[Rfam]
The family of this 145-nucleotide sequence is "RT-14 RNA". By type it is a small RNA. The sequence is in the family's curated seed alignment.

RNA sequence: CUCUAAUAUUAUUUUAGAUGUAAAAGAUUCAAGGAUCUUUACCAAUAAAGUAUUAGAUAUUAAAGAAGUUUAUUCCUUCCUGAAAAGGUAAAAAUGAAUAUAAUUUUAGUAUAACUCCGGUAGGAAACGAAAGAAAUACUAAAAU
Number, nucleotide and partner (000 for none) at each position: 001c000002u000003c056004u055005a054006a053007u052008a051009u050010u000011a000012u000013u048014u047015u000016a000017g000018a000019u000020g042021u041022a040023a039024a000025a038026g037027a036028u035029u034030c000031a000032a000033g000034g029035a028036u027037c026038u025039u023040u022041a021042c020043c000044a000045a000046u000047a014048a013049a000050g009051u008052a007053u006054u005055a004056g003057a000058u000059a000060u000061u000062a000063a000064a000065g000066a000067a000068g000069u000070u000071u000072a000073u000074u000075c000076c000077u000078u000079c088080c087081u086082g000083a000084a000085a000086a081087g080088g079089u000090a000091a000092a000093a000094a000095u000096g000097a000098a000099u000100a000101u000102a000103a145104u144105u143106u142107u141108a140109g139110u138111a137112u000113a000114a000115c000116u134117c133118c000119g000120g000121u000122a000123g128124g000125a000126a000127a000128c123129g000130a000131a000132a000133g117134a116135a000136a000137u111138a110139c109140u108141a107142a106143a105144a104145u103